This 84-nucleotide RNA from Dialister histaminiformans belongs to the Rfam family "ZMP/ZTP riboswitch aptamer (pfl RNA motif)". It scores 59 bits against the family's covariance model. The source organism's lineage runs through Bacteria, Bacillota, Veillonellales, Veillonellaceae and Dialister.

RNA sequence: AAGGAACUGCAGGACUGACGGAUACAGUGGAAUCAACCACGUGGACUGCAGAAUCUGGUAUUGCCGACCGUCUGGGCUGAAGAG
Numbered sequence: 001a002a003g004g005a006a007c008u009g010c011a012g013g014a015c016u017g018a019c020g021g022a023u024a025c026a027g028u029g030g031a032a033u034c035a036a037c038c039a040c041g042u043g044g045a046c047u048g049c050a051g052a053a054u055c056u057g058g059u060a061u062u063g064c065c066g067a068c069c070g071u072c073u074g075g076g077c078u079g080a081a082g083a084g
Base pairs, nucleotide, nucleotide: 003055004054007051008050009049010048011047012046015043017072018071019070020069021068027040028039029038030037061079063077064076065075
Dot-bracket structure: ..((..((((((..(.[[[[[.....((((......))))..)..))))))..)).....(.(((..]]]]]..))).).....